[Rfam]
Rfam assigns this 120-nucleotide RNA sequence from Arthrobacter wenxiniae to the family "mraW RNA". Taxonomically the source falls in Arthrobacter (Bacteria, Bacillati, Actinomycetes, Micrococcales). Rfam classes the family as a cis-regulatory element. A search with the family's covariance model found it, with a score of 56 bits.
RNA sequence: GGCCGGAUCUUGGAUGAGAUCUCCACCCGCCCGGCAGUGUCCAUCCUGGCUCACCUUCCCCGGAGCCAGGCAGGACAGCGCUCGGCGCGGAGGGGGAUCUGGUCCAAGAACCACAACCGG
Numbered sequence: 001g002g003c004c005g006g007a008u009c010u011u012g013g014a015u016g017a018g019a020u021c022u023c024c025a026c027c028c029g030c031c032c033g034g035c036a037g038u039g040u041c042c043a044u045c046c047u048g049g050c051u052c053a054c055c056u057u058c059c060c061c062g063g064a065g066c067c068a069g070g071c072a073g074g075a076c077a078g079c080g081c082u083c084g085g086c087g088c089g090g091a092g093g094g095g096g097a098u099c100u101g102g103u104c105c106a107a108g109a110a111c112c113a114c115a116a117c118c119g120g
Base pairs, nucleotide, nucleotide: 010107011106012105013104014103015102018099019098021096022095023094024093027090028089029088030087031085032084033083034082038077039076040075041074042073045070046069047068048067049066050065051064052063